[Rfam]
Rfam assigns this 105-nucleotide RNA from Branchiostoma belcheri to the family "mir-2060 microRNA precursor family". Rfam 15.1 lists 3,696 matches to the family in 4 species. The source organism's lineage runs through Eukaryota, Metazoa, Deuterostomia, Chordata and Branchiostoma. Its family is annotated with miRNA-mediated post-transcriptional gene silencing and RISC complex in the Gene Ontology.
RNA sequence: GUGUGUGUGUUUCUGGAUAGUAUUCAGUACUAAGGACAGGCAUAGUGUGUGUGUGUGUGUGUGUAUCUGGAUAAUAUUCAGUACUAAGGACAGGCAUGUUAACAC
Numbered sequence: 001g002u003g004u005g006u007g008u009g010u011u012u013c014u015g016g017a018u019a020g021u022a023u024u025c026a027g028u029a030c031u032a033a034g035g036a037c038a039g040g041c042a043u044a045g046u047g048u049g050u051g052u053g054u055g056u057g058u059g060u061g062u063g064u065a066u067c068u069g070g071a072u073a074a075u076a077u078u079c080a081g082u083a084c085u086a087a088g089g090a091c092a093g094g095c096a097u098g099u100u101a102a103c104a105c
Base pairs, nucleotide, nucleotide: 004096005095006094008092009091010090018086019085020084021083022082023081024080026078027077028076029075031073032072034066036064037063038062040060041059042058043057044056